[Rfam]
RNA sequence: UUUAACUAAAUACUAAAUCACACACGUAUCGACACAUUCUUCGGGGUGCUCUUAGUGCGCUAUUUUAGCAAGCAAGAGUCGAAGGUAUGGGAUUCGUGGAGGUCUAAC
Number, nucleotide and partner (000 for none) at each position: 001u000002u000003u000004a000005a000006c000007u000008a000009a000010a000011u000012a000013c000014u000015a000016a000017a000018u000019c000020a000021c000022a000023c098024a097025c096026g095027u000028a093029u092030c091031g000032a000033c000034a000035c089036a088037u087038u000039c085040u083041u082042c081043g080044g000045g000046g000047u000048g079049c078050u077051c076052u075053u000054a000055g000056u000057g000058c000059g000060c000061u000062a000063u000064u000065u000066u000067a000068g000069c000070a000071a000072g000073c000074a000075a052076g051077a050078g049079u048080c043081g042082a041083a040084g000085g039086u000087a037088u036089g035090g000091g030092a029093u028094u000095c026096g025097u024098g023099g000100a000101g000102g000103u000104c000105u000106a000107a000108c000
The record is a 108-nucleotide RNA sequence from Shewanella sp. P1-14-1, which matches "t44 RNA" in Rfam. It scores 78 bits against the family's covariance model. For this family Rfam cites "Transcriptome analysis of Escherichia coli using high-density oligonucleotide probe arrays" (Tjaden et al., Nucleic Acids Res, 2002). The family's RNA type in Rfam is small RNA. Pairs were carried over by alignment from the consensus structure, which was predicted with LocARNA.